[Rfam]
The record is a 59-nucleotide RNA from Cutibacterium acnes, which matches "Actino-pnp RNA" in Rfam. The family's RNA type in Rfam is cis-regulatory element. The base pairs follow the family's consensus structure, which is taken from published work. Taxonomically the source falls in Cutibacterium acnes (Bacteria, Actinomycetota, Propionibacteriaceae, Cutibacterium).
RNA sequence: AUGGGUCCUCGGUAGUGGCCACCGGGGCGCGAUCCCGGCGGCUUCGAUCGAAGACCGGU
Numbered sequence: 001a002u003g004g005g006u007c008c009u010c011g012g013u014a015g016u017g018g019c020c021a022c023c024g025g026g027g028c029g030c031g032a033u034c035c036c037g038g039c040g041g042c043u044u045c046g047a048u049c050g051a052a053g054a055c056c057g058g059u
Base pairs, nucleotide, nucleotide: 001059002058004056005055006054007053009051010050011049012048013047017043018042019041020040022038023037024036025035026034027033